Background
The record is a 75-nucleotide RNA sequence from Parnassius apollo, which matches "Mammalian CPEB3 ribozyme" in Rfam. It scores 55 bits against the family's covariance model. Its family is annotated with RNA nuclease activity in the Gene Ontology. The family's consensus secondary structure is taken from published work.
[Rfam]
RNA sequence: UUAGGUAACGGGGGUCGUUGUAGAAGCGUGCUCGUCGCGACCCCUGCCAGCCCUUUUCAGGGCUGCAAUUCUACA
Numbered sequence: 001u002u003a004g005g006u007a008a009c010g011g012g013g014g015u016c017g018u019u020g021u022a023g024a025a026g027c028g029u030g031c032u033c034g035u036c037g038c039g040a041c042c043c044c045u046g047c048c049a050g051c052c053c054u055u056u057u058c059a060g061g062g063c064u065g066c067a068a069u070u071c072u073a074c075a
Base pairs, nucleotide, nucleotide: 011044012043013042014041015040016039019075020074021073022072023071024070025069026038027037028036048065049064050063051062052061053060054059